[Rfam]
Rfam assigns this 85-nucleotide RNA sequence from Pseudomonas sp. StFLB209 to the family "gyrA RNA". By type it is a cis-regulatory element. The base pairs follow the family's consensus structure, which is taken from published work.

RNA sequence: UCGUAAGUCGUCGCCUGGUGUCAACCGGGGGCGGCGAGCCUUGAUCGUUCCGCAGGGGGCGUUGGGGUUUCACCAGAAAAAGGAA
Numbered sequence: 001u002c003g004u005a006a007g008u009c010g011u012c013g014c015c016u017g018g019u020g021u022c023a024a025c026c027g028g029g030g031g032c033g034g035c036g037a038g039c040c041u042u043g044a045u046c047g048u049u050c051c052g053c054a055g056g057g058g059g060c061g062u063u064g065g066g067g068u069u070u071c072a073c074c075a076g077a078a079a080a081a082g083g084a085a
Stems, first nucleotide, its partner, number of pairs: 007035006014028002018025002036070010047060005